[Rfam]
RNA sequence: GGUUUCUUAUGGUGUAAUCCAUUCACCUCAAUUCAAGAUGAAAACCAAUUCUUCAUUGGUAGCAAAUGGUUAUCUAUUAAGCGGAUGAAAUAUUAG
Numbered sequence: 001g002g003u004u005u006c007u008u009a010u011g012g013u014g015u016a017a018u019c020c021a022u023u024c025a026c027c028u029c030a031a032u033u034c035a036a037g038a039u040g041a042a043a044a045c046c047a048a049u050u051c052u053u054c055a056u057u058g059g060u061a062g063c064a065a066a067u068g069g070u071u072a073u074c075u076a077u078u079a080a081g082c083g084g085a086u087g088a089a090a091u092a093u094u095a096g
Base pairs, nucleotide, nucleotide: 009022010021011020012019052085053084054083055077056076058074059073060072061071062070063069
Overview
Shown here is a 96-nucleotide RNA sequence from Lactuca sativa, a member of the family "Plastid-rps12 3UTR RNA". The organism belongs to Lactuca, within Eukaryota. It scores 93 bits against the family's covariance model. Rfam classes the family as a cis-regulatory element. Pairs were carried over by alignment from the consensus structure, which was predicted with LocARNA. Rfam's curators write: Plastid rpl20 is a non-coding RNA (ncRNA) recognised in plastids. It was found in the three prime untranslated region (3UTR) of rps12 gene, its 3UTR location sugest a role in transcript maduration.